Shown here is a 108-nucleotide RNA sequence from Propioniciclava flava, a member of the family "TPP riboswitch aptamer (THI element)". Lineage of the source: Bacteria > Actinomycetota > Actinomycetes > Propionibacteriaceae > Propioniciclava. Pairs were carried over by alignment from the consensus structure, which is taken from published work. Gene Ontology term of the family: thiamine pyrophosphate binding.
RNA sequence: UCUCCCAGACAGGGGAGCGCUCACCGGGAGCGCUGAGAGUGCGGAGCGCCGCAGACCCUCGAACCUGAUCCGGCUAGCACCGGCGUAGGGAGUCGAGUUCUCUACCGG
Numbered sequence: 001u002c003u004c005c006c007a008g009a010c011a012g013g014g015g016a017g018c019g020c021u022c023a024c025c026g027g028g029a030g031c032g033c034u035g036a037g038a039g040u041g042c043g044g045a046g047c048g049c050c051g052c053a054g055a056c057c058c059u060c061g062a063a064c065c066u067g068a069u070c071c072g073g074c075u076a077g078c079a080c081c082g083g084c085g086u087a088g089g090g091a092g093u094c095g096a097g098u099u100c101u102c103u104a105c106c107g108g
Base pairs, nucleotide, nucleotide: 008094009093010092011059012058013057014056017033018032019031020030021029040053041052042051043050044049064089065088066087067086070083071082072081073080